[Rfam]
About this RNA:
Rfam assigns this 130-nucleotide RNA sequence from Nannospalax galili to the family "Small nucleolar RNA SNORA38". NCBI's taxonomy places the organism under Eukaryota, Craniata, Vertebrata, Myomorpha, Nannospalax. It scores 126 bits against the family's covariance model.
RNA sequence: CCCUCCCACAAAGGCAUGGUUUUGGUUCCCUGUCCUUGAACAGGUAAGAAUUGGAGGCAAAGAAAAGUGGAUUUGGAGAAAUCUGGGGCCAGCUUGCCCCUGCAGGCUUGAGAUCAAUCAUCAUACACAG
Number, nucleotide and partner (000 for none) at each position: 001c000002c057003c056004u055005c054006c053007c000008a000009c000010a000011a000012a000013g000014g000015c044016a000017u042018g041019g000020u039021u038022u000023u000024g030025g029026u000027u000028c000029c025030c024031u000032g000033u000034c000035c000036u000037u000038g021039a020040a000041c018042a017043g000044g015045u000046a000047a000048g000049a000050a000051u000052u000053g006054g005055a004056g003057g002058c000059a000060a000061a000062g000063a000064a000065a000066a000067g000068u000069g000070g122071a121072u000073u120074u000075g000076g000077a000078g000079a000080a000081a000082u000083c000084u000085g000086g000087g000088g000089c000090c000091a108092g107093c106094u105095u104096g103097c102098c000099c000100c000101u000102g097103c096104a095105g094106g093107c092108u091109u000110g000111a000112g000113a000114u000115c000116a000117a000118u000119c000120a073121u071122c070123a000124u000125a000126c000127a000128c000129a000130g000